[Rfam]
RNA sequence: ACCCCGUUGAUAACACUCUGGGACCGACCCCCUUUCCUUCGUGGAUCGGAACAUCCAUGGUCUGUCCCUAUUUUAGUACAACGGAGAUUGAAUGACAUGACCCUUUACUCAUCGAAGCAACUUGAUUCUGUGGUCGCUUUGGUCCUUUUUGGAGGUCAACAU
Numbered sequence: 001a002c003c004c005c006g007u008u009g010a011u012a013a014c015a016c017u018c019u020g021g022g023a024c025c026g027a028c029c030c031c032c033u034u035u036c037c038u039u040c041g042u043g044g045a046u047c048g049g050a051a052c053a054u055c056c057a058u059g060g061u062c063u064g065u066c067c068c069u070a071u072u073u074u075a076g077u078a079c080a081a082c083g084g085a086g087a088u089u090g091a092a093u094g095a096c097a098u099g100a101c102c103c104u105u106u107a108c109u110c111a112u113c114g115a116a117g118c119a120a121c122u123u124g125a126u127u128c129u130g131u132g133g134u135c136g137c138u139u140u141g142g143u144c145c146u147u148u149u150u151g152g153a154g155g156u157c158a159a160c161a162u
Stems, first nucleotide, its partner, number of pairs: 007081003020068005026062004099157004112142004117137002120134003
Rfam assigns this 162-nucleotide RNA from Venturia effusa to the family "Small nucleolar RNA snR80". Pairs were carried over by alignment from the consensus structure, which was predicted with WAR. A reference for the family is Schattner et al. (2004), "Genome-wide searching for pseudouridylation guide snoRNAs: analysis of the Saccharomyces cerevisiae genome", Nucleic Acids Res. Lineage of the source: Eukaryota > leotiomyceta > dothideomyceta > Venturiaceae > Venturia. The match comes from Rfam's covariance-model search (50 bits).